This 127-nucleotide sequence from Nicotiana tabacum belongs to the Rfam family "U1 spliceosomal RNA".
U1 is a small nuclear RNA (snRNA) component of the spliceosome (involved in pre-mRNA splicing).
Gene Ontology terms of the family: U1 snRNP, mRNA 5'-splice site recognition and pre-mRNA 5'-splice site binding.
Lineage of the source: Eukaryota > Streptophytina > asterids > Nicotianoideae > Nicotiana.
RNA sequence: AUACUUACCUGGACGAGGUCAUUGAGCAAUCAACAAGGCUCGUGGCCGGGGUUGGUGACCUCCAUUGCACUUUGGAGGGGUGCCUGCCUAAGGUUGGCCCAAGGGGUCGAGCCUACAUACCCAAGUC
Numbered sequence: 001a002u003a004c005u006u007a008c009c010u011g012g013a014c015g016a017g018g019u020c021a022u023u024g025a026g027c028a029a030u031c032a033a034c035a036a037g038g039c040u041c042g043u044g045g046c047c048g049g050g051g052u053u054g055g056u057g058a059c060c061u062c063c064a065u066u067g068c069a070c071u072u073u074g075g076a077g078g079g080g081u082g083c084c085u086g087c088c089u090a091a092g093g094u095u096g097g098c099c100c101a102a103g104g105g106g107u108c109g110a111g112c113c114u115a116c117a118u119a120c121c122c123a124a125g126u127c
Stems, first nucleotide, its partner, number of pairs: 012120001013118001015116001017047005023042005049089003053086001055083003059079003062075002091114003094110003098106002